[Rfam]
RNA sequence: AUAGCAUCAGUGAUGUUACAUCCAUAUUUACUCAUCCUUGCACUAUGAGGCAACCGGUGAAGAAAAAAUUGGGGAAAUAUGUAGCCUGAGAUGCUC
Numbered sequence: 001a002u003a004g005c006a007u008c009a010g011u012g013a014u015g016u017u018a019c020a021u022c023c024a025u026a027u028u029u030a031c032u033c034a035u036c037c038u039u040g041c042a043c044u045a046u047g048a049g050g051c052a053a054c055c056g057g058u059g060a061a062g063a064a065a066a067a068a069u070u071g072g073g074g075a076a077a078u079a080u081g082u083a084g085c086c087u088g089a090g091a092u093g094c095u096c
Stems, first nucleotide, its partner, number of pairs: 003095006
RNA: Small nucleolar RNA snoR26